[Rfam]
RNA sequence: CUAUACUCGGGGUUUGGAAAGGGGAAUCCCCUUCCCGGUUUGGAGGGGGUGCUCAGGAGCGUAAGCUCCGUCGAAGGGGGG
Numbered sequence: 001c002u003a004u005a006c007u008c009g010g011g012g013u014u015u016g017g018a019a020a021g022g023g024g025a026a027u028c029c030c031c032u033u034c035c036c037g038g039u040u041u042g043g044a045g046g047g048g049g050u051g052c053u054c055a056g057g058a059g060c061g062u063a064a065g066c067u068c069c070g071u072c073g074a075a076g077g078g079g080g081g
Base pairs, nucleotide, nucleotide: 016035017034018033019032021030022029023028056069057068058067059066060065
Annotation:
Clostridiales-2 RNA: an 81-nucleotide sequence from Ruminiclostridium cellobioparum. It scores 60 bits against the family's covariance model.